[Rfam]
RNA sequence: UGCUUUGAGGAAAGACAAUAAAGACUUCAUGUUA
Numbered sequence: 001u002g003c004u005u006u007g008a009g010g011a012a013a014g015a016c017a018a019u020a021a022a023g024a025c026u027u028c029a030u031g032u033u034a
Base pairs, nucleotide, nucleotide: 001015003014004013005012006011
This 34-nucleotide sequence from Microtus ochrogaster belongs to the Rfam family "Renin stability regulatory element (REN-SRE)". A search with the family's covariance model found it, with a score of 45 bits. The family has 13 seed sequences and 120 matches in Rfam 15.1. A reference for the family is Adams et al. (2003), "HADHB, HuR, and CP1 Bind to the Distal 3'-Untranslated Region of Human Renin mRNA and Differentially Modulate Renin Expression", J Biol Chem. Its family is annotated with RNA destabilization and protein binding in the Gene Ontology. Rfam classes the family as a cis-regulatory element. Rfam describes the family as follows. This family represents a cis-acting element in the 3'-UTR of the renin (REN) gene called renin stability regulatory element (REN-SRE) which acts to regulate renin production. REN-SRE is thought to destabilise the mRNA, promoting degradation of the sequence. It has been found that a number of proteins bind to the REN-SRE to stabilise the mRNA and promote translation. Renin is secreted by renal juxtaglomerular cells and catalyses the conversion of angiotensinogen into angiotensin I which is the rate-limiting step in the production of angiotensin II. Angiotensin II induces hypertension and REN therefore requires tight control to ensure expression appropriate to need.